Shown here is a 240-nucleotide part of an RNA from Solanum lycopersicum, a member of the family "Eukaryotic large subunit ribosomal RNA". Clan: LSU clan.

[Rfam]
RNA sequence: CGGAUGGGGGUCGGCGAUGCCCCCCGGUCAGAUGUAGAAUGGUGAUGAGUCGAUCCGCCAAUCGACUCGGGGCAUGGACUAGUGUGGAUUGGGGGCGGCCAAAGUCUGGGCUCUCGAUACGCCCGUGGAAUGUUGUCUCCUAGAUUGUUGCAGGUAGCGUGCGCCUCUGGCGUGCUUCGGCAUCUAUGCUCUCUGGACGCUGGCUUGUGGGCUCCCCAUUCGACCCAUCUUGAAACACGA
Number, nucleotide and partner (000 for none) at each position: 001c222002g221003g220004a219005u218006g217007g216008g215009g214010g213011u211012c210013g000014g000015c000016g000017a075018u000019g000020c000021c000022c072023c071024c070025c069026g068027g000028u000029c000030a000031g000032a000033u000034g000035u000036a000037g000038a000039a000040u000041g000042g000043u000044g000045a000046u000047g000048a000049g000050u000051c000052g000053a000054u000055c000056c000057g000058c000059c000060a000061a000062u000063c000064g000065a000066c000067u000068c026069g025070g024071g023072g022073c000074a000075u017076g000077g000078a000079c203080u202081a201082g200083u199084g198085u197086g000087g000088a000089u000090u000091g000092g000093g000094g000095g000096c000097g000098g000099c000100c000101a000102a000103a000104g000105u000106c000107u000108g000109g000110g000111c000112u000113c000114u000115c000116g000117a000118u000119a000120c000121g000122c000123c000124c000125g000126u000127g000128g000129a000130a000131u000132g000133u000134u000135g000136u000137c000138u000139c000140c000141u000142a000143g000144a000145u000146u000147g000148u000149u000150g000151c000152a000153g000154g000155u000156a000157g000158c000159g000160u000161g000162c000163g000164c000165c000166u000167c000168u000169g000170g000171c000172g000173u000174g000175c000176u000177u000178c000179g000180g000181c000182a000183u000184c000185u000186a000187u000188g000189c000190u000191c000192u000193c000194u000195g000196g000197a085198c084199g083200c082201u081202g080203g079204c000205u000206u000207g000208u000209g000210g012211g011212c000213u010214c009215c008216c007217c006218a005219u004220u003221c002222g001223a000224c000225c000226c239227a000228u237229c000230u000231u000232g000233a000234a000235a000236c000237a228238c000239g226240a000
Lineage of the source: Eukaryota > Embryophyta > Magnoliopsida > Pentapetalae > Solanum subgen. Lycopersicon.